[Rfam]
Bacterial small subunit ribosomal RNA: a 590-nucleotide part of an RNA from Aquifex aeolicus.

RNA sequence: UCCCUGAAGAGUUUGAUCCUGGCUCAGCGCGAACGCUGGCGGCGUGCCUAACACAUGCAAGUCGUGCGCAGGGUCGGCCCCUUUUGGGGCCGGCCGCUGAGCGGCAAACGGGUGAGUAACACGUGGGUAACCUACCCCCAGGAGGGGGAUAACCCCGGGAAACCGGGGCUAAUACCCCAUAAUGCCACCCGCCACUAAGGCGCGGUGGCCAAAGGGGGCCUCUGGCCUUCGGCCACGCUCCCGCCUGGGGAUGGGCCCGCGGCCCAUCAGGUAGUUGGUGGGGUAACGGCCCACCAAGCCUAUGACGGGUAGCCGGCCUGAGAGGGUGGCCGGCCACAGCGGGACUGAGACACGGCCCGCACCCCUACGGGGGGCAGCAGUGGGGAAUCGUGGGCAAUGGGCGAAAGCCUGACCCCGCGACGCCGCGUGGGGGAUGAAGCCCUGCGGGGUGUAAACCCCUGUCGGGGGGGACGAUGCGGACACGGGUUAAUAGCCCGUGUCCGUGACGGUACCCCCAGAGGAAGGGACGGCUAACUACGUGCCAGCAGCCGCGGUAAUACGUAGGUCCCAAGCGUUGCGCGAAGUCACUG
Numbered sequence: 001u002c003c004c005u006g007a008a009g010a011g012u013u014u015g016a017u018c019c020u021g022g023c024u025c026a027g028c029g030c031g032a033a034c035g036c037u038g039g040c041g042g043c044g045u046g047c048c049u050a051a052c053a054c055a056u057g058c059a060a061g062u063c064g065u066g067c068g069c070a071g072g073g074u075c076g077g078c079c080c081c082u083u084u085u086g087g088g089g090c091c092g093g094c095c096g097c098u099g100a101g102c103g104g105c106a107a108a109c110g111g112g113u114g115a116g117u118a119a120c121a122c123g124u125g126g127g128u129a130a131c132c133u134a135c136c137c138c139c140a141g142g143a144g145g146g147g148g149a150u151a152a153c154c155c156c157g158g159g160a161a162a163c164c165g166g167g168g169c170u171a172a173u174a175c176c177c178c179a180u181a182a183u184g185c186c187a188c189c190c191g192c193c194a195c196u197a198a199g200g201c202g203c204g205g206u207g208g209c210c211a212a213a214g215g216g217g218g219c220c221u222c223u224g225g226c227c228u229u230c231g232g233c234c235a236c237g238c239u240c241c242c243g244c245c246u247g248g249g250g251a252u253g254g255g256c257c258c259g260c261g262g263c264c265c266a267u268c269a270g271g272u273a274g275u276u277g278g279u280g281g282g283g284u285a286a287c288g289g290c291c292c293a294c295c296a297a298g299c300c301u302a303u304g305a306c307g308g309g310u311a312g313c314c315g316g317c318c319u320g321a322g323a324g325g326g327u328g329g330c331c332g333g334c335c336a337c338a339g340c341g342g343g344a345c346u347g348a349g350a351c352a353c354g355g356c357c358c359g360c361a362c363c364c365c366u367a368c369g370g371g372g373g374g375c376a377g378c379a380g381u382g383g384g385g386a387a388u389c390g391u392g393g394g395c396a397a398u399g400g401g402c403g404a405a406a407g408c409c410u411g412a413c414c415c416c417g418c419g420a421c422g423c424c425g426c427g428u429g430g431g432g433g434a435u436g437a438a439g440c441c442c443u444g445c446g447g448g449g450u451g452u453a454a455a456c457c458c459c460u461g462u463c464g465g466g467g468g469g470g471a472c473g474a475u476g477c478g479g480a481c482a483c484g485g486g487u488u489a490a491u492a493g494c495c496c497g498u499g500u501c502c503g504u505g506a507c508g509g510u511a512c513c514c515c516c517a518g519a520g521g522a523a524g525g526g527a528c529g530g531c532u533a534a535c536u537a538c539g540u541g542c543c544a545g546c547a548g549c550c551g552c553g554g555u556a557a558u559a560c561g562u563a564g565g566u567c568c569c570a571a572g573c574g575u576u577g578c579g580c581g582a583a584g585u586c587a588c589u590g
Stems, first nucleotide, its partner, number of pairs: 009025005027580004032576006039426006045419002047384001052382003056379003061105003066102002069099002075092007112337003122261007131254002136250007144178004153168006184209006190202004214242006263309003270300003275297008312334004316327004339360005362373004390416001392415003398411005429459004439450004463521001465516005473507001479501007524569005535564005545552002